[Rfam]
RNA sequence: AAGUCAGUCAAUUAGUCUGCUUACCUGAAUGUAUUUCUGCAAUAGUGAAGCCACAUUAUGAGCCUUAAAGACUUUGAAGUCAUUAAGGUCCCUGAAAAUGGCUACAAGA
Numbered sequence: 001a002a003g004u005c006a007g008u009c010a011a012u013u014a015g016u017c018u019g020c021u022u023a024c025c026u027g028a029a030u031g032u033a034u035u036u037c038u039g040c041a042a043u044a045g046u047g048a049a050g051c052c053a054c055a056u057u058a059u060g061a062g063c064c065u066u067a068a069a070g071a072c073u074u075u076g077a078a079g080u081c082a083u084u085a086a087g088g089u090c091c092c093u094g095a096a097a098a099u100g101g102c103u104a105c106a107a108g109a
Stems, first nucleotide, its partner, number of pairs: 003040001005039003050102004062089007070081003